The family of this 117-nucleotide RNA from Oceanibacterium hippocampi is "ALIL pseudoknot". Rfam links the family to the GO term positive regulation of translational frameshifting. NCBI's taxonomy places the organism under Bacteria, Pseudomonadati, Alphaproteobacteria, Sneathiellales, Oceanibacterium.
RNA sequence: GGCAUGUUUCGCUUAGGCGGAGCUAGACCAUCCGCUCGAGCGAUAAUCGCCUUCAUUGACGAUCACCCGGCGGAGUUCAGGGUCAAGCCGAUCUGCAGGGUGCUGCCGAUUACCCCA
Numbered sequence: 001g002g003c004a005u006g007u008u009u010c011g012c013u014u015a016g017g018c019g020g021a022g023c024u025a026g027a028c029c030a031u032c033c034g035c036u037c038g039a040g041c042g043a044u045a046a047u048c049g050c051c052u053u054c055a056u057u058g059a060c061g062a063u064c065a066c067c068c069g070g071c072g073g074a075g076u077u078c079a080g081g082g083u084c085a086a087g088c089c090g091a092u093c094u095g096c097a098g099g100g101u102g103c104u105g106c107c108g109a110u111u112a113c114c115c116c117a
Stems, first nucleotide, its partner, number of pairs: 016032002019029002080115003090111001092109002095106004